[Rfam]
RNA sequence: GCACUUCGCUAGGGGUGUUGCACGGCGCAAGCCGGGCGACUGAGACAGUCCCUUUGAACCUGAUUGAGGUAAUCCUCGCGCAGGGAAGCAGCGUGAUCCGGCC
Numbered sequence: 001g002c003a004c005u006u007c008g009c010u011a012g013g014g015g016u017g018u019u020g021c022a023c024g025g026c027g028c029a030a031g032c033c034g035g036g037c038g039a040c041u042g043a044g045a046c047a048g049u050c051c052c053u054u055u056g057a058a059c060c061u062g063a064u065u066g067a068g069g070u071a072a073u074c075c076u077c078g079c080g081c082a083g084g085g086a087a088g089c090a091g092c093g094u095g096a097u098c099c100g101g102c103c
Base pairs, nucleotide, nucleotide: 006091008089009088010087011053012052013051014050016047017040018039019038020037021036059084060083061082062081065078066077067076068075
Dot-bracket structure: .....(.(((((((.((((((..............)))))......)..)))).....((((..((((......))))..))))..))).)............